Rfam assigns this 210-nucleotide RNA from Gemmobacter fulvus to the family "permuted transfer-messenger RNA". Bacterial tmRNA, also known as 10Sa RNA or SsrA, is named for its dual tRNA and mRNA-like properties. Its role is to liberate the mRNA from a stalled ribosome. To accomplish this part of the tmRNA is used as a reading frame that ends in a translation stop signal. The broken mRNA is replaced in the ribosome by the tmRNA and translation of the tmRNA leads to addition of a proteolysis tag to the incomplete protein enabling recognition by a protease. NCBI's taxonomy places the organism under Bacteria, Pseudomonadota, Alphaproteobacteria, Paracoccaceae, Gemmobacter. It scores 142 bits against the family's covariance model.
RNA sequence: GGCGAUAAACGCACCCGUAAUAAUCGGAUCGGACCCGGGGGCGGUACCCGGCGACUCCACCAAAAAUCCCUGCAUUGGGGGCAGAUGGGGUCGAAACAGGAUCGACGAACGACUAAAGGGGCCAGCUUUUGCUCGGUGAGGUACUACCGUUAUCGGUCCAAACGUACAGUUGCCAAUGACAACCGUGCUCCGAUGGCUCUGGCUGCGUAA
Numbered sequence: 001g002g003c004g005a006u007a008a009a010c011g012c013a014c015c016c017g018u019a020a021u022a023a024u025c026g027g028a029u030c031g032g033a034c035c036c037g038g039g040g041g042c043g044g045u046a047c048c049c050g051g052c053g054a055c056u057c058c059a060c061c062a063a064a065a066a067u068c069c070c071u072g073c074a075u076u077g078g079g080g081g082c083a084g085a086u087g088g089g090g091u092c093g094a095a096a097c098a099g100g101a102u103c104g105a106c107g108a109a110c111g112a113c114u115a116a117a118g119g120g121g122c123c124a125g126c127u128u129u130u131g132c133u134c135g136g137u138g139a140g141g142u143a144c145u146a147c148c149g150u151u152a153u154c155g156g157u158c159c160a161a162a163c164g165u166a167c168a169g170u171u172g173c174c175a176a177u178g179a180c181a182a183c184c185g186u187g188c189u190c191c192g193a194u195g196g197c198u199c200u201g202g203c204u205g206c207g208u209a210a
Base pairs, nucleotide, nucleotide: 001133002132003131004130005129014121015120016119025111026110029108030107031106035051036050037049038048039047052093053092054091055090056089057088058087134149135148136147137146